A member of the RNA family "U7 small nuclear RNA" from Propithecus coquereli, 64 nucleotides long. For this family Rfam cites "U7 snRNAs: a computational survey" (Marz et al., Genomics Proteomics Bioinformatics, 2007).

RNA sequence: GAGUGUUACGGCUCUUUUAGAAUUUGUCUGGCAGGUUUUCUGAUUUUUACUGGAAACCACCAGC
Numbered sequence: 001g002a003g004u005g006u007u008a009c010g011g012c013u014c015u016u017u018u019a020g021a022a023u024u025u026g027u028c029u030g031g032c033a034g035g036u037u038u039u040c041u042g043a044u045u046u047u048u049a050c051u052g053g054a055a056a057c058c059a060c061c062a063g064c
Base pairs, nucleotide, nucleotide: 034061035060036059037056038055039054040053041052042051044049